[Rfam]
RNA sequence: CUCCAUAUGGGAAGUGAAGACCCCGUGGAGCUUUACUGCAGCCUGUCGUUGUGUUACGGUAUUCCUUGCGCAGAGUAGAUGGGAGAUGUCGAUCCGUUCCUCGUGGGGAACGGGGAGUCGCAAUCUGAGACACCAUCCUAGGUUUAUUGUAACACUAACUCGCUUAGAGGACACCGGUAGGUAGGCAGUUUGGGUGGGGCGCCACACCCUCGAAAAGGUAUCAAGGGUGCCCCAAGGUCAACUCAUGUGAGUCAGAAACUCACAGGAGAGUGUCAAGAGCAAAAGUUGGCCUGACGCUGACACGAACAGUAAGUGUCUGCGAGAGGAAACUCGGGUCUAACGAACCAAUGAGCGCUUUUGAUGAGUGCCAUUGACGACAGAAAAGCUACCCCGGGGAUAACAGAGUCGUCGCCGGCAAGAGCACAUAUCGACCCGGCGGCUUGCUACCUCGAUGUCGGUUCUUUCCAUCCUGGCUGUGCAGCAGCAGCCAAGGGUGAGGUUGUUCGCCUAUUAAAGGGGAUCGUGAGCUGGGUUUAGACCGUCGUGAGACAGGUCGGUUACUAUCUAUAUGGAGUGUUG
Numbered sequence: 001c002u003c004c005a006u007a008u009g010g011g012a013a014g015u016g017a018a019g020a021c022c023c024c025g026u027g028g029a030g031c032u033u034u035a036c037u038g039c040a041g042c043c044u045g046u047c048g049u050u051g052u053g054u055u056a057c058g059g060u061a062u063u064c065c066u067u068g069c070g071c072a073g074a075g076u077a078g079a080u081g082g083g084a085g086a087u088g089u090c091g092a093u094c095c096g097u098u099c100c101u102c103g104u105g106g107g108g109a110a111c112g113g114g115g116a117g118u119c120g121c122a123a124u125c126u127g128a129g130a131c132a133c134c135a136u137c138c139u140a141g142g143u144u145u146a147u148u149g150u151a152a153c154a155c156u157a158a159c160u161c162g163c164u165u166a167g168a169g170g171a172c173a174c175c176g177g178u179a180g181g182u183a184g185g186c187a188g189u190u191u192g193g194g195u196g197g198g199g200c201g202c203c204a205c206a207c208c209c210u211c212g213a214a215a216a217g218g219u220a221u222c223a224a225g226g227g228u229g230c231c232c233c234a235a236g237g238u239c240a241a242c243u244c245a246u247g248u249g250a251g252u253c254a255g256a257a258a259c260u261c262a263c264a265g266g267a268g269a270g271u272g273u274c275a276a277g278a279g280c281a282a283a284a285g286u287u288g289g290c291c292u293g294a295c296g297c298u299g300a301c302a303c304g305a306a307c308a309g310u311a312a313g314u315g316u317c318u319g320c321g322a323g324a325g326g327a328a329a330c331u332c333g334g335g336u337c338u339a340a341c342g343a344a345c346c347a348a349u350g351a352g353c354g355c356u357u358u359u360g361a362u363g364a365g366u367g368c369c370a371u372u373g374a375c376g377a378c379a380g381a382a383a384a385g386c387u388a389c390c391c392c393g394g395g396g397a398u399a400a401c402a403g404a405g406u407c408g409u410c411g412c413c414g415g416c417a418a419g420a421g422c423a424c425a426u427a428u429c430g431a432c433c434c435g436g437c438g439g440c441u442u443g444c445u446a447c448c449u450c451g452a453u454g455u456c457g458g459u460u461c462u463u464u465c466c467a468u469c470c471u472g473g474c475u476g477u478g479c480a481g482c483a484g485c486a487g488c489c490a491a492g493g494g495u496g497a498g499g500u501u502g503u504u505c506g507c508c509u510a511u512u513a514a515a516g517g518g519g520a521u522c523g524u525g526a527g528c529u530g531g532g533u534u535u536a537g538a539c540c541g542u543c544g545u546g547a548g549a550c551a552g553g554u555c556g557g558u559u560a561c562u563a564u565c566u567a568u569a570u571g572g573a574g575u576g577u578u579g
Base pairs, nucleotide, nucleotide: 001574002573003572004571005570006569007568008567010566011565012564014561015560022395023394024393025392027391028390029387030386031385032384033383035189036188037187038186042181043180044179045178046177047176048175051155052154053153054152055151056150057149058148059147060146061145064142065141066140068138078137079136080135081134082133085119086118087117097110098109099108100107101106159169160168161167192205193203194202195201206228207227208226209225210224231335232334237290238289239288240287241286242285243269244268246264247263248262249261250260251259270280271279295321296320297319299317300316301315302314303313323332325330346373347372348371349370350369352368353367354366355365356364404445405444406443408442409439410438411437412436413435414434415433419429420428456531457529458528459527460526461523462520463519464518465517466516469494470493473488474487475486476485477484497509498508499507500506537555538554539553540552541550542549543548

Rfam assigns this 579-nucleotide part of an RNA from Methanolacinia petrolearia to the family "Archaeal large subunit ribosomal RNA". For this family Rfam cites "Crystal structure of the ribosome at 5.5 A resolution" (Yusupov et al., Science, 2001). Rfam 15.1 lists 2,955 matches to the family in 1,139 species. The sequence is in the family's curated seed alignment.